[Rfam]
RNA sequence: CGGGAAUAACCGACGUUAGGGAAUUCGGCAAGUUAGUCCCGUACGUUCGCAAUAAGGGAUGCCUGCCUCGGAAAGAGGCAGGUCGCAGUGACUCGGACGCUCCAACUGUCUAGUAACAACAUAGGUGACCGCAAAUCCGCAAGGACUCGUACGGUCACUGAAUCCUGCCCAGUGCGGGUAUCUGAACACCCAGUACAAUGGGACGAAGGACCCGUUAACGGCGGGGGUAACUAUGACCCUCUUAAGGUAGCGUAGUACCUUGCCGCUUCAGUAGCGGCUUGCAUGAAUGGAUCAAUGAGAGCGUCACUGUCCCAACGUUGGGCCCGGUGAACUGUACGUUCCAGUGCGGAGUCUGGAGA
Numbered sequence: 001c002g003g004g005a006a007u008a009a010c011c012g013a014c015g016u017u018a019g020g021g022a023a024u025u026c027g028g029c030a031a032g033u034u035a036g037u038c039c040c041g042u043a044c045g046u047u048c049g050c051a052a053u054a055a056g057g058g059a060u061g062c063c064u065g066c067c068u069c070g071g072a073a074a075g076a077g078g079c080a081g082g083u084c085g086c087a088g089u090g091a092c093u094c095g096g097a098c099g100c101u102c103c104a105a106c107u108g109u110c111u112a113g114u115a116a117c118a119a120c121a122u123a124g125g126u127g128a129c130c131g132c133a134a135a136u137c138c139g140c141a142a143g144g145a146c147u148c149g150u151a152c153g154g155u156c157a158c159u160g161a162a163u164c165c166u167g168c169c170c171a172g173u174g175c176g177g178g179u180a181u182c183u184g185a186a187c188a189c190c191c192a193g194u195a196c197a198a199u200g201g202g203a204c205g206a207a208g209g210a211c212c213c214g215u216u217a218a219c220g221g222c223g224g225g226g227g228u229a230a231c232u233a234u235g236a237c238c239c240u241c242u243u244a245a246g247g248u249a250g251c252g253u254a255g256u257a258c259c260u261u262g263c264c265g266c267u268u269c270a271g272u273a274g275c276g277g278c279u280u281g282c283a284u285g286a287a288u289g290g291a292u293c294a295a296u297g298a299g300a301g302c303g304u305c306a307c308u309g310u311c312c313c314a315a316c317g318u319u320g321g322g323c324c325c326g327g328u329g330a331a332c333u334g335u336a337c338g339u340u341c342c343a344g345u346g347c348g349g350a351g352u353c354u355g356g357a358g359a
Stems, first nucleotide, its partner, number of pairs: 001326004010321008019312003036060005045050001061083009084088001096305007103297002107121003124159008132149001136145003162292004167222003172219002174215005181210003189202004223241006242246001262278006340357005
Overview:
Rfam assigns this 359-nucleotide part of an RNA from Halopiger xanaduensis to the family "Archaeal large subunit ribosomal RNA". Pairs were carried over by alignment from the consensus structure, which is taken from published work. Clan: LSU clan.